[Rfam]
RNA sequence: ACACGGGAAAGGAGGUGGUCCGAAGAAUGAUUUCUUUUGGGACGCGUGAGGUGGCUGCCCGCUAGCAGCCCAUCAGCAAGACCCGGGGCGGAGUCGUCCUGGGACGGCUGCUGGUGAAUCCAUCGCAGUCACCCGACCCGCAGGCGAUCCGGUCAUCACGUCCACCGGAGCCGGGCCCACCUGGGCUCGACGCCUGCGGGUCGCUGCGU
Numbered sequence: 001a002c003a004c005g006g007g008a009a010a011g012g013a014g015g016u017g018g019u020c021c022g023a024a025g026a027a028u029g030a031u032u033u034c035u036u037u038u039g040g041g042a043c044g045c046g047u048g049a050g051g052u053g054g055c056u057g058c059c060c061g062c063u064a065g066c067a068g069c070c071c072a073u074c075a076g077c078a079a080g081a082c083c084c085g086g087g088g089c090g091g092a093g094u095c096g097u098c099c100u101g102g103g104a105c106g107g108c109u110g111c112u113g114g115u116g117a118a119u120c121c122a123u124c125g126c127a128g129u130c131a132c133c134c135g136a137c138c139c140g141c142a143g144g145c146g147a148u149c150c151g152g153u154c155a156u157c158a159c160g161u162c163c164a165c166c167g168g169a170g171c172c173g174g175g176c177c178c179a180c181c182u183g184g185g186c187u188c189g190a191c192g193c194c195u196g197c198g199g200g201u202c203g204c205u206g207c208g209u
Stems, first nucleotide, its partner, number of pairs: 014059006060116007068108003073102003134203013148169006

The record is a 209-nucleotide RNA sequence from Nocardioides sp. Root1257, which matches "Actinobacteria sRNA Ms_IGR-5" in Rfam.
It scores 124 bits against the family's covariance model.
By type it is a small RNA.
The literature on the family includes a 2013 paper in RNA by Li et al., "Identification of small RNAs in Mycobacterium smegmatis using heterologous Hfq".
NCBI's taxonomy places the organism under Bacteria, Bacillati, Propionibacteriales, Nocardioidaceae, Nocardioides.